[Rfam]
RNA: Small nucleolar RNA SNORA5
Organism: Erinaceus europaeus
RNA sequence: AGCAGCUGUGUCAAGUUCAGGGCUUGUCCAGCUUACGGCAGGCACUGGCCCAAAAGGCUGCCACAGUAAUACUGUGGCUCAUGGGCCUGACCCCUCUCCUGGGCCUCAGGGAUAAAUUUGGUUUCAGAUACUA
Dot-bracket structure: .((((............(((.(((((((........))))))).)))..........))))............(.((((......(((((...............))))).........)))).)........